[Rfam]
RNA sequence: UCUCUGGAGAAUCCCGAAAAGGGUGCCGAAGGUGUAAGCAGACAGUGUCUGUGAAUCUCUCAGGCAAAAGGACAGUGA
Numbered sequence: 001u002c003u004c005u006g007g008a009g010a011a012u013c014c015c016g017a018a019a020a021g022g023g024u025g026c027c028g029a030a031g032g033u034g035u036a037a038g039c040a041g042a043c044a045g046u047g048u049c050u051g052u053g054a055a056u057c058u059c060u061c062a063g064g065c066a067a068a069a070g071g072a073c074a075g076u077g078a
Stems, first nucleotide, its partner, number of pairs: 001078002004075003013023003025065003028061002032059001034057001038052004
Glycine riboswitch aptamer: a 78-nucleotide RNA from Lachnospiraceae bacterium CAG:364. Its family is annotated with glycine biosynthetic process in the Gene Ontology. Lineage of the source: Bacteria > Bacillati > Bacillota > Lachnospirales > Lachnospiraceae.